[Rfam]
RNA sequence: UUUAUUUAUGGCGAUGGAGUUCGCCUUAAAAUCCGCACAGGCGGUAAUGACUCCUACCACGUA
Numbered sequence: 001u002u003u004a005u006u007u008a009u010g011g012c013g014a015u016g017g018a019g020u021u022c023g024c025c026u027u028a029a030a031a032u033c034c035g036c037a038c039a040g041g042c043g044g045u046a047a048u049g050a051c052u053c054c055u056a057c058c059a060c061g062u063a
Base pairs, nucleotide, nucleotide: 010025011024012023013022016054017053018052019051020050021049033044034043035042036041
Shown here is a 63-nucleotide RNA sequence from Allolucifera butyrica, a member of the family "Fluoride riboswitch aptamer (crcB RNA motif)". It scores 49 bits against the family's covariance model. Its family is annotated with positive regulation of gene expression and response to fluoride in the Gene Ontology. Pairs were carried over by alignment from the consensus structure, which is taken from published work. Lineage of the source: Bacteria > Bacillati > Negativicutes > Veillonellaceae > Allolucifera.